[Rfam]
RNA: Lysine riboswitch aptamer
Organism: Paludifilum halophilum
RNA sequence: CGAGUGAUUAGAGGAGCGGAUGACCAUCAGUAGCCACCGGGAGGUGCGGUUCCGAAGACCGGCGGGGAAAGGGGCGUUCGCCGAAGUUCUUUCCCUUUACCGCUGGGGGAGGAGCUGGACCCGUUGCCGAACAGGAGCGGGACUGUCACGGAGAAACUUGGAUGUUUUCUGUGGAGCACUAUUUCACCG
Numbered sequence: 001c002g003a004g005u006g007a008u009u010a011g012a013g014g015a016g017c018g019g020a021u022g023a024c025c026a027u028c029a030g031u032a033g034c035c036a037c038c039g040g041g042a043g044g045u046g047c048g049g050u051u052c053c054g055a056a057g058a059c060c061g062g063c064g065g066g067g068a069a070a071g072g073g074g075c076g077u078u079c080g081c082c083g084a085a086g087u088u089c090u091u092u093c094c095c096u097u098u099a100c101c102g103c104u105g106g107g108g109g110a111g112g113a114g115c116u117g118g119a120c121c122c123g124u125u126g127c128c129g130a131a132c133a134g135g136a137g138c139g140g141g142a143c144u145g146u147c148a149c150g151g152a153g154a155a156a157c158u159u160g161g162a163u164g165u166u167u168u169c170u171g172u173g174g175a176g177c178a179c180u181a182u183u184u185c186a187c188c189g
Stems, first nucleotide, its partner, number of pairs: 006184002009181003016081007024073001034065002037062004085116012117144002120141006127134001146174010